[Rfam]
RNA sequence: UCGUGAUAGAUGGGGAAGUAGCGGAGUCCUGUAACCUGCAAUCCGCUUUAGCAGGAUUGAAUUCCCGUAUUGAGUGUAUUGUUUUGUAAGGCUGGAGAGCAUGGUAGGUGUUGAGAUCGGGGUCUUGUGCAAUGUAGAUUUACGAACCCCGUCAGGUCUUGAUCGAAGCAGCGGUAAGUAAAACCCUGCAUGUGAUACAAGGGUGCCUCGGUUGAGUCUUAAGUGUUAAUACCGCUUGGAAGGCAUAUGCGAAGACGGGUUCACGA
Numbered sequence: 001u002c003g004u005g006a007u008a009g010a011u012g013g014g015g016a017a018g019u020a021g022c023g024g025a026g027u028c029c030u031g032u033a034a035c036c037u038g039c040a041a042u043c044c045g046c047u048u049u050a051g052c053a054g055g056a057u058u059g060a061a062u063u064c065c066c067g068u069a070u071u072g073a074g075u076g077u078a079u080u081g082u083u084u085u086g087u088a089a090g091g092c093u094g095g096a097g098a099g100c101a102u103g104g105u106a107g108g109u110g111u112u113g114a115g116a117u118c119g120g121g122g123u124c125u126u127g128u129g130c131a132a133u134g135u136a137g138a139u140u141u142a143c144g145a146a147c148c149c150c151g152u153c154a155g156g157u158c159u160u161g162a163u164c165g166a167a168g169c170a171g172c173g174g175u176a177a178g179u180a181a182a183a184c185c186c187u188g189c190a191u192g193u194g195a196u197a198c199a200a201g202g203g204u205g206c207c208u209c210g211g212u213u214g215a216g217u218c219u220u221a222a223g224u225g226u227u228a229a230u231a232c233c234g235c236u237u238g239g240a241a242g243g244c245a246u247a248u249g250c251g252a253a254g255a256c257g258g259g260u261u262c263a264c265g266a
Stems, first nucleotide, its partner, number of pairs: 001266006009058003012030004019023001035055005064259005070254002074250005081244005087238004095230001098227005105221002107218003115213009124201006130192002133190005139182005149174004157166002
RNA: Bacterial large signal recognition particle RNA